[Rfam]
RNA sequence: GAGGAUAAAUGGUGUCGUGGAAUAGACACAGCGGACCCGGGGGCAGUACCCGGCGGCUCCACCACAAACCCGAAUUUCCCUGAUGGGACGUGCGGGUUUCUGACGGGGCCGAACCAGGAUCGACGUGUGUUCAAAGGCGAUAUUUUCUUCCGGGCUGAGUAACCCGUUCAAGGCUCAAAACCAAUAGGUGCUAACGAUAACGAAGCACUCGCUCUGGCUGCGUAA
Number, nucleotide and partner (000 for none) at each position: 001g150002a149003g148004g147005a146006u000007a000008a000009a000010u000011g000012g000013u000014g000015u140016c139017g138018u137019g000020g000021a000022a000023u000024a000025g000026a000027c129028a128029c127030a000031g126032c125033g124034g000035a000036c000037c053038c052039g051040g050041g049042g000043g000044c000045a000046g000047u000048a000049c041050c040051c039052g038053g037054c111055g110056g109057c108058u107059c106060c105061a000062c000063c000064a000065c000066a000067a000068a000069c000070c000071c000072g000073a000074a000075u000076u000077u000078c000079c000080c000081u000082g000083a000084u000085g000086g000087g000088a000089c000090g000091u000092g000093c000094g000095g000096g000097u000098u000099u000100c000101u000102g000103a000104c000105g060106g059107g058108g057109c056110c055111g054112a000113a000114c000115c000116a000117g000118g000119a000120u000121c000122g000123a000124c033125g032126u031127g029128u028129g027130u000131u000132c000133a000134a000135a000136g000137g018138c017139g016140a015141u000142a000143u000144u000145u000146u005147c004148u003149u002150c001151c166152g165153g164154g163155c000156u000157g000158a000159g000160u000161a000162a000163c154164c153165c152166g151167u000168u000169c000170a000171a000172g000173g000174c000175u000176c000177a000178a000179a000180a000181c000182c000183a000184a000185u000186a000187g000188g000189u000190g000191c000192u000193a000194a000195c000196g000197a000198u000199a000200a000201c000202g000203a000204a000205g000206c000207a000208c000209u000210c000211g000212c000213u000214c000215u000216g000217g000218c000219u000220g000221c000222g000223u000224a000225a000

A member of the RNA family "permuted transfer-messenger RNA" from Sphingopyxis witflariensis, 225 nucleotides long. It is annotated as a non-coding RNA gene. Taxonomically the source falls in Sphingopyxis (Bacteria, Alphaproteobacteria, Sphingomonadales, Sphingopyxidaceae). Rfam describes the family as follows. Bacterial tmRNA, also known as 10Sa RNA or SsrA, is named for its dual tRNA and mRNA-like properties. Its role is to liberate the mRNA from a stalled ribosome. To accomplish this part of the tmRNA is used as a reading frame that ends in a translation stop signal. The broken mRNA is replaced in the ribosome by the tmRNA and translation of the tmRNA leads to addition of a proteolysis tag to the incomplete protein enabling recognition by a protease. Recently a number of permuted tmRNA genes have been found encoded in two parts. tmRNAs have been identified in eubacteria and some chloroplasts but are absent from archaeal and eukaryote nuclear genomes.